Rfam assigns this 55-nucleotide RNA from Streptomyces rimosus to the family "L17-Actino-Proteobacteria ribosomal protein leader". The literature on the family includes a 2020 paper in BMC Microbiol by Eckert and Weinberg, "Discovery of 20 novel ribosomal leader candidates in bacteria and archaea". NCBI's taxonomy places the organism under Bacteria, Bacillati, Actinomycetota, Actinomycetes, Streptomyces rimosus.
RNA sequence: CCGCGGGGCACCCGCCCCCGGGAACUGACACCGGUACCUGAUACGGCCGGUGCAG
Numbered sequence: 001c002c003g004c005g006g007g008g009c010a011c012c013c014g015c016c017c018c019c020g021g022g023a024a025c026u027g028a029c030a031c032c033g034g035u036a037c038c039u040g041a042u043a044c045g046g047c048c049g050g051u052g053c054a055g
Stems, first nucleotide, its partner, number of pairs: 001021003005018005025055003029052007